Mycobacterium smegmatis small RNA 1: a 316-nucleotide RNA from Mycolicibacterium tokaiense. The literature on the family includes a 2014 paper in Nucleic Acids Res by Hnilicova et al., "Ms1, a novel sRNA interacting with the RNA polymerase core in mycobacteria". The match comes from Rfam's covariance-model search (213 bits). Rfam's curators write: Mycobacterium smegmatis small RNA 1 is highly expressed during stationary phase of growth. Ms1 RNA directly interacts with RNA polymerase (RNAP), but in a different way than 6S, which is present in other bacteria. Ms1 does not require the presence of the main sigma factor for RNAP interaction. There is evidence that Ms1 RNA may function similar to 6S RNA in M. smegmatis which does not have 6S RNA.

RNA sequence: ACGGAAGCCCGGUGAGGCCAAGACCGACUCGGAAGAGAAGGGUCGAUCUCCCGCAUCAGGUAACCCAGCACGGAUCCCGGUACCCACGCGGAGCCAGAGCCGCUAUAGAGGCAGAAGCGUUGCGGGCCUGCGAAUUUGCGAAGAGCGGAUGAACCAGGACCUCUUGGGUUGAGGUCAGCUUCACACCGCGUCGCACAAUCGCCGAGGCCAACCCACGCAGCCCACCUAUGGACGCUUGGUAACCGGAGAUCCGUGCUAGCGGGCGGCGAACUGAGAACUGGAUGCCCAGUGCUCGGAGCGCCGCCCGCUUUGUGCG
Numbered sequence: 001a002c003g004g005a006a007g008c009c010c011g012g013u014g015a016g017g018c019c020a021a022g023a024c025c026g027a028c029u030c031g032g033a034a035g036a037g038a039a040g041g042g043u044c045g046a047u048c049u050c051c052c053g054c055a056u057c058a059g060g061u062a063a064c065c066c067a068g069c070a071c072g073g074a075u076c077c078c079g080g081u082a083c084c085c086a087c088g089c090g091g092a093g094c095c096a097g098a099g100c101c102g103c104u105a106u107a108g109a110g111g112c113a114g115a116a117g118c119g120u121u122g123c124g125g126g127c128c129u130g131c132g133a134a135u136u137u138g139c140g141a142a143g144a145g146c147g148g149a150u151g152a153a154c155c156a157g158g159a160c161c162u163c164u165u166g167g168g169u170u171g172a173g174g175u176c177a178g179c180u181u182c183a184c185a186c187c188g189c190g191u192c193g194c195a196c197a198a199u200c201g202c203c204g205a206g207g208c209c210a211a212c213c214c215a216c217g218c219a220g221c222c223c224a225c226c227u228a229u230g231g232a233c234g235c236u237u238g239g240u241a242a243c244c245g246g247a248g249a250u251c252c253g254u255g256c257u258a259g260c261g262g263g264c265g266g267c268g269a270a271c272u273g274a275g276a277a278c279u280g281g282a283u284g285c286c287c288a289g290u291g292c293u294c295g296g297a298g299c300g301c302c303g304c305c306c307g308c309u310u311u312g313u314g315c316g
Stems, first nucleotide, its partner, number of pairs: 003065002007061003011057002016052002021049002025045006067257008077246005084239003088235003094230001099112003119221006125209005130202004137195005145189003150183004158176006259308010271296005